[Rfam]
RNA sequence: AAGUAAGGUAAUAAAAAAACUCAUAUAUACCUGUGAUAUGGACAGGAGUUUCUACGGCUGACCUUAAAAUAGCUGCUAUGGGUGAAGUAUACAUAUAU
Numbered sequence: 001a002a003g004u005a006a007g008g009u010a011a012u013a014a015a016a017a018a019a020c021u022c023a024u025a026u027a028u029a030c031c032u033g034u035g036a037u038a039u040g041g042a043c044a045g046g047a048g049u050u051u052c053u054a055c056g057g058c059u060g061a062c063c064u065u066a067a068a069a070u071a072g073c074u075g076c077u078a079u080g081g082g083u084g085a086a087g088u089a090u091a092c093a094u095a096u097a098u
Stems, first nucleotide, its partner, number of pairs: 019083007030046005056074005
Dot-bracket structure: ..................(((((((....(((((.......))))).........(((((.........)))))..)))))))...............

Description: Purine riboswitch aptamer: a 98-nucleotide sequence from Fusobacterium varium. NCBI's taxonomy places the organism under Bacteria, Fusobacteriati, Fusobacteriota, Fusobacteriia, Fusobacterium varium. The base pairs follow the family's consensus structure, which is taken from published work.